[Rfam]
RNA: Small nucleolar RNA snR80
Organism: Penicillium desertorum
RNA sequence: GGAACCCCCACAACACUCUGGCCCUUACUGUUCAUUCCCUACGGGGUUUGAUCAUAUCAAAAACGUGGUAUAGGCUUAUUUUAAGUGGGGAAGAGAAAACCAGUCCCAUUACUCAUCGCGGUAUCCUUGAAGACUUGUCUUCGUGGGUACAGUGGUCCAUAUUUCGGGUCUACAU
Numbered sequence: 001g002g003a004a005c006c007c008c009c010a011c012a013a014c015a016c017u018c019u020g021g022c023c024c025u026u027a028c029u030g031u032u033c034a035u036u037c038c039c040u041a042c043g044g045g046g047u048u049u050g051a052u053c054a055u056a057u058c059a060a061a062a063a064c065g066u067g068g069u070a071u072a073g074g075c076u077u078a079u080u081u082u083a084a085g086u087g088g089g090g091a092a093g094a095g096a097a098a099a100c101c102a103g104u105c106c107c108a109u110u111a112c113u114c115a116u117c118g119c120g121g122u123a124u125c126c127u128u129g130a131a132g133a134c135u136u137g138u139c140u141u142c143g144u145g146g147g148u149a150c151a152g153u154g155g156u157c158c159a160u161a162u163u164u165c166g167g168g169u170c171u172a173c174a175u
Stems, first nucleotide, its partner, number of pairs: 007090003020076004026070004032051003103170001105168002116155004121150003125147003